[Rfam]
RNA sequence: CACUGUUAACGGCUAACUUGUCGAAAGGCAAGGGCGCAAAGUCACCGGUCUAACGAGAGAACUCCUUGCGAGAUUUCUCCAUGACGGCGGGACCGCCAGU
Numbered sequence: 001c002a003c004u005g006u007u008a009a010c011g012g013c014u015a016a017c018u019u020g021u022c023g024a025a026a027g028g029c030a031a032g033g034g035c036g037c038a039a040a041g042u043c044a045c046c047g048g049u050c051u052a053a054c055g056a057g058a059g060a061a062c063u064c065c066u067u068g069c070g071a072g073a074u075u076u077c078u079c080c081a082u083g084a085c086g087g088c089g090g091g092a093c094c095g096c097c098a099g100u
Stems, first nucleotide, its partner, number of pairs: 012037002017032006041093003045090003048085003055079006
A member of the RNA family "c-di-GMP-I riboswitch aptamer" from Novimethylophilus kurashikiensis, 100 nucleotides long. Its Rfam clan is "c-di-GMP_I riboswitch clan". For this family Rfam cites "Riboswitches in Eubacteria Sense the Second Messenger Cyclic Di-GMP" (Sudarsan et al., Science, 2008). The source organism's lineage runs through Bacteria, Pseudomonadati, Pseudomonadota, Nitrosomonadales and Novimethylophilus.